[Rfam]
RNA sequence: GCCUUAUAGUCGGGGAGCUGUAAAGCUGAGAUCGCCGGAAGAUUUGCCACAGGCAAAGCGUCAUCGCGAGACCCGUAGAACCUGAUUCAGUUAGUACUGACGUAGGGAACUAUAGUGUUGUGGUA
Numbered sequence: 001g002c003c004u005u006a007u008a009g010u011c012g013g014g015g016a017g018c019u020g021u022a023a024a025g026c027u028g029a030g031a032u033c034g035c036c037g038g039a040a041g042a043u044u045u046g047c048c049a050c051a052g053g054c055a056a057a058g059c060g061u062c063a064u065c066g067c068g069a070g071a072c073c074c075g076u077a078g079a080a081c082c083u084g085a086u087u088c089a090g091u092u093a094g095u096a097c098u099g100a101c102g103u104a105g106g107g108a109a110c111u112a113u114a115g116u117g118u119u120g121u122g123g124u125a
Base pairs, nucleotide, nucleotide: 006113007112008111009110010109011075012074013073014072017026018025019024033068034067035066081106082105083104084103087100088099089098090097

A member of the RNA family "TPP riboswitch aptamer (THI element)" from Vibrio ostreae, 125 nucleotides long. Rfam's curators write: Vitamin B(1) in its active form thiamin pyrophosphate (TPP) is an essential coenzyme that is synthesised by coupling of pyrimidine and thiazole moieties in bacteria. The organism belongs to Vibrio, within Bacteria. It scores 70 bits against the family's covariance model.